A member of the RNA family "MIR7502 microRNA precursor family" from Gossypium harknessii, 145 nucleotides long. Pairs were carried over by alignment from the consensus structure, which was predicted with RNAalifold. Gene Ontology terms of the family: miRNA-mediated post-transcriptional gene silencing and RISC complex.
RNA sequence: UGUUAAAAAUUUUAUACAUUUGUAUUGUUAAAAAUUUGCAUGAUUGACAAAAUAAUUAAACAGUGGCGUGUGACAUGUCACAUGUACAUCAUGAUGGCGUCUAAUGACUAAUUUUUAAAAACAAAAUUGGAUAAUUUUUUUAAUA
Dot-bracket structure: .((((((((..((((..(.((.(.((.((((((...............................................................................)))))).)).).)).)..))))..)))))))).